[Rfam]
RNA sequence: UGACAACCGUUCCUCCUACUGCUUGAAGAUUUAGCACCUAGGAUUUUAGGUUGUCACAGAUCAUAGCGGUUCUUUUUCACCCAGAGUUCAUGAGGUAGCGGGGCUGCCCCUGUGAACGCUGGAAUUUGCGGGACCCAACAUUU
Numbered sequence: 001u002g003a004c005a006a007c008c009g010u011u012c013c014u015c016c017u018a019c020u021g022c023u024u025g026a027a028g029a030u031u032u033a034g035c036a037c038c039u040a041g042g043a044u045u046u047u048a049g050g051u052u053g054u055c056a057c058a059g060a061u062c063a064u065a066g067c068g069g070u071u072c073u074u075u076u077u078c079a080c081c082c083a084g085a086g087u088u089c090a091u092g093a094g095g096u097a098g099c100g101g102g103g104c105u106g107c108c109c110c111u112g113u114g115a116a117c118g119c120u121g122g123a124a125u126u127u128g129c130g131g132g133a134c135c136c137a138a139c140a141u142u143u
Stems, first nucleotide, its partner, number of pairs: 001056008014043005020036004069135001071133004081122004086117005094108004
Dot-bracket structure: ((((((((.....(((((.((((.........))))..))))).....))))))))............(.((((......((((.(((((...((((.......))))....))))).)))).......)))).)........
RNA: Small nucleolar RNA SNORA79
Organism: Synaphobranchus kaupii